Description:
Glycine riboswitch aptamer: a 104-nucleotide RNA sequence from Rubrobacter taiwanensis. Its family is annotated with glycine biosynthetic process in the Gene Ontology. It scores 66 bits against the family's covariance model.

[Rfam]
RNA sequence: CAGAAGGCCGCGGGAGAGAGCCGCCGCGGGCGGCCGCCGAAGGUGAAAGGCUCUUUUAAGUGUAAGGAGCCGAAUCUCUCAGGCAAAAGGACCGCUGGCCGGAG
Numbered sequence: 001c002a003g004a005a006g007g008c009c010g011c012g013g014g015a016g017a018g019a020g021c022c023g024c025c026g027c028g029g030g031c032g033g034c035c036g037c038c039g040a041a042g043g044u045g046a047a048a049g050g051c052u053c054u055u056u057u058a059a060g061u062g063u064a065a066g067g068a069g070c071c072g073a074a075u076c077u078c079u080c081a082g083g084c085a086a087a088a089g090g091a092c093c094g095c096u097g098g099c100c101g102g103a104g
Base pairs, nucleotide, nucleotide: 006099008097010095011094012093013092020034021033022032023031036084037083038082039080040079043078045076049071050070051069052068053067054066055065056064